[Rfam]
RNA sequence: GUGACUGGCGGGUUUGGGAGAACCCAAUGGUUACCGACGGGUCCGGCGUGAAGGUUUGGGAGAACCUGCGUUCGGAUCGCCUCACAGGGGAGAACCACCGAUGCAGAAUACGCUUCUGGUCGGCCUAUCGAAGCAGAUGGUGCUGG
Numbered sequence: 001g002u003g004a005c006u007g008g009c010g011g012g013u014u015u016g017g018g019a020g021a022a023c024c025c026a027a028u029g030g031u032u033a034c035c036g037a038c039g040g041g042u043c044c045g046g047c048g049u050g051a052a053g054g055u056u057u058g059g060g061a062g063a064a065c066c067u068g069c070g071u072u073c074g075g076a077u078c079g080c081c082u083c084a085c086a087g088g089g090g091a092g093a094a095c096c097a098c099c100g101a102u103g104c105a106g107a108a109u110a111c112g113c114u115u116c117u118g119g120u121c122g123g124c125c126u127a128u129c130g131a132a133g134c135a136g137a138u139g140g141u142g143c144u145g146g
Stems, first nucleotide, its partner, number of pairs: 001034007010025006040078006053066005098123005104118005
Rfam assigns this 146-nucleotide RNA sequence to the family "flg-Rhizobiales RNA". The family's RNA type in Rfam is cis-regulatory element.